[Rfam]
RNA sequence: CCGAAAUCUGCGCCGGAACCUAGCGGCAUCCAACAUUUGUCACAGCCGUGCACACCGCCACGGACCGUAAACCCCUCAACGGAGGGUUGUCCGCAGUAGCUCGUGGCAUGAGCUACUGCUGUAAACGCACAGUUCAGGAGAUUGGGGUCCGUGGCGGUGAGCACGGCUGAGACAAAUGUUGGAUGCCGCUUGGUUCCAGCGCAGAUUUCGG
Numbered sequence: 001c002c003g004a005a006a007u008c009u010g011c012g013c014c015g016g017a018a019c020c021u022a023g024c025g026g027c028a029u030c031c032a033a034c035a036u037u038u039g040u041c042a043c044a045g046c047c048g049u050g051c052a053c054a055c056c057g058c059c060a061c062g063g064a065c066c067g068u069a070a071a072c073c074c075c076u077c078a079a080c081g082g083a084g085g086g087u088u089g090u091c092c093g094c095a096g097u098a099g100c101u102c103g104u105g106g107c108a109u110g111a112g113c114u115a116c117u118g119c120u121g122u123a124a125a126c127g128c129a130c131a132g133u134u135c136a137g138g139a140g141a142u143u144g145g146g147g148u149c150c151g152u153g154g155c156g157g158u159g160a161g162c163a164c165g166g167c168u169g170a171g172a173c174a175a176a177u178g179u180u181g182g183a184u185g186c187c188g189c190u191u192g193g194u195u196c197c198a199g200c201g202c203a204g205a206u207u208u209c210g211g
Stems, first nucleotide, its partner, number of pairs: 001211013015197006022190012035177007043169009053159001055157007063149004068144003072140001074138003078134003084128001086126001091121001093119009